[Rfam]
RNA sequence: GCUGAGCUCAGUAGCGUGGGCUUGUGAUCCAAGCGGAAGCAUCAGGGUGACGGAACGUUGGGCUUGUCCUAUGGGCUGGGCUAUGGGAGGCGUAAAAUGAUCUGCCCGAUCCAAGCUGGGUGUUGGUCAUGGUUUCUCGGCGAAGGCUGAGAUGUCGUGCCCACUGAAAAGGGAGGCAAAGCGUGAGGCUGGAUUCACAGAGCAGCGAUCACUUCCUGCCCCCAGCAGUGGAUGGAUAACAGGCCGUUUCUCCUGCAGCCCAACAUGUCAAUAGGCUUCCCCAAUUGGACCAUCACUUUU
Numbered sequence: 001g002c003u004g005a006g007c008u009c010a011g012u013a014g015c016g017u018g019g020g021c022u023u024g025u026g027a028u029c030c031a032a033g034c035g036g037a038a039g040c041a042u043c044a045g046g047g048u049g050a051c052g053g054a055a056c057g058u059u060g061g062g063c064u065u066g067u068c069c070u071a072u073g074g075g076c077u078g079g080g081c082u083a084u085g086g087g088a089g090g091c092g093u094a095a096a097a098u099g100a101u102c103u104g105c106c107c108g109a110u111c112c113a114a115g116c117u118g119g120g121u122g123u124u125g126g127u128c129a130u131g132g133u134u135u136c137u138c139g140g141c142g143a144a145g146g147c148u149g150a151g152a153u154g155u156c157g158u159g160c161c162c163a164c165u166g167a168a169a170a171g172g173g174a175g176g177c178a179a180a181g182c183g184u185g186a187g188g189c190u191g192g193a194u195u196c197a198c199a200g201a202g203c204a205g206c207g208a209u210c211a212c213u214u215c216c217u218g219c220c221c222c223c224a225g226c227a228g229u230g231g232a233u234g235g236a237u238a239a240c241a242g243g244c245c246g247u248u249u250c251u252c253c254u255g256c257a258g259c260c261c262a263a264c265a266u267g268u269c270a271a272u273a274g275g276c277u278u279c280c281c282c283a284a285u286u287g288g289a290c291c292a293u294c295a296c297u298u299u300u
Stems, first nucleotide, its partner, number of pairs: 001040003004023007028037003044299007052291002056287002058284003061280002066276001068275005074269003078261005084255002087252003092248001097247003101243004106235002109233005115226006122219002124163003128159006135152007170217006180209001182207003189200003
Plant signal recognition particle RNA: a 300-nucleotide sequence from Cuscuta europaea. Rfam 15.1 lists 4,988 matches to the family in 266 species. A reference for the family is Wild et al. (2002), "Towards the structure of the mammalian signal recognition particle", Curr Opin Struct Biol. Rfam links the family to the GO terms SRP-dependent cotranslational protein targeting to membrane, signal sequence recognition and signal recognition particle, endoplasmic reticulum targeting. Lineage of the source: Eukaryota > Spermatophyta > Gunneridae > Pentapetalae > Cuscuta subgen. Cuscuta. The base pairs follow the family's consensus structure, which is taken from published work.